[Rfam]
RNA sequence: AAAAGGAGCAAUAACCCCCUUCUUGUUCUAUCAAGAGGGCGUUAUUGUUUCCCCCUU
Numbered sequence: 001a002a003a004a005g006g007a008g009c010a011a012u013a014a015c016c017c018c019c020u021u022c023u024u025g026u027u028c029u030a031u032c033a034a035g036a037g038g039g040c041g042u043u044a045u046u047g048u049u050u051c052c053c054c055c056u057u
Stems, first nucleotide, its partner, number of pairs: 005051011020037006
The record is a 57-nucleotide sequence from Lobelia erinus, which matches "Plastid-psbA-3 3UTR RNA" in Rfam. Rfam describes the family as follows. Plastid psbA-3 is a non-coding RNA (ncRNA) present in plastids. The sequence is in the family's curated seed alignment. By type it is a cis-regulatory element. Taxonomically the source falls in Lobelia (Eukaryota, Embryophyta, Euphyllophyta, Asterales).